This 129-nucleotide RNA sequence from Nycticryphes semicollaris belongs to the Rfam family "Small nucleolar RNA SNORA65". Rfam describes the family as follows. U65 belongs to the H/ACA class of snoRNAs which are thought to guide the sites of modification of uridines to pseudouridines. Clan: SNORA65 clan. Pairs were carried over by alignment from the consensus structure, which was predicted with RNAalifold. The source organism's lineage runs through Eukaryota, Eumetazoa, Deuterostomia, Euteleostomi and Nycticryphes.
[Rfam]
RNA sequence: CCUGCCACUGUCCCUGUCCUGUAGCUCAGUGACCGGUGCAGCCCAGAGGUGAGCUGAGAGAAAAUGCCUGCUUAAGAAACAGAGUUACUCUCGUUGUGGGUAACUUUGUGCUGAAGUCUGCAAACAGGC
Numbered sequence: 001c002c003u004g005c006c007a008c009u010g011u012c013c014c015u016g017u018c019c020u021g022u023a024g025c026u027c028a029g030u031g032a033c034c035g036g037u038g039c040a041g042c043c044c045a046g047a048g049g050u051g052a053g054c055u056g057a058g059a060g061a062a063a064a065u066g067c068c069u070g071c072u073u074a075a076g077a078a079a080c081a082g083a084g085u086u087a088c089u090c091u092c093g094u095u096g097u098g099g100g101u102a103a104c105u106u107u108g109u110g111c112u113g114a115a116g117u118c119u120g121c122a123a124a125c126a127g128g129c
Base pairs, nucleotide, nucleotide: 005049006048008046009045010044018036019035021033022031023030065122066121067120070118072116073115075112076111080108081107082106083105084104085103088100089099090098